[Rfam]
RNA sequence: UAAGUAUUGCCAAAGUGCUUACAGUGCAGGUAGUGCUAUGCAAUACCUACUGCAGUGGAGGCACUUACAGCAAUACUCU
Numbered sequence: 001u002a003a004g005u006a007u008u009g010c011c012a013a014a015g016u017g018c019u020u021a022c023a024g025u026g027c028a029g030g031u032a033g034u035g036c037u038a039u040g041c042a043a044u045a046c047c048u049a050c051u052g053c054a055g056u057g058g059a060g061g062c063a064c065u066u067a068c069a070g071c072a073a074u075a076c077u078c079u
Base pairs, nucleotide, nucleotide: 004076005075006074007073009071010070013066014065015064016063017062018061019060020059022057023056025054026053027052029051030050031049032048033047
Shown here is a 79-nucleotide RNA from Betta splendens, a member of the family "mir-17 microRNA precursor family".
The base pairs follow the family's consensus structure, which was predicted with RNAalifold.
Gene Ontology terms of the family: RISC complex and miRNA-mediated post-transcriptional gene silencing.
Rfam describes the family as follows. This family represents the microRNA (miRNA) precursor mir-17, family, which includes mir-20, mir-91, and mir-103. miRNAs are transcribed as ~70nt precursors (modelled here) and subsequently processed by the Dicer enzyme to give a ~22nt product.
Taxonomically the source falls in Betta (Eukaryota, Neopterygii, Teleostei, Macropodinae).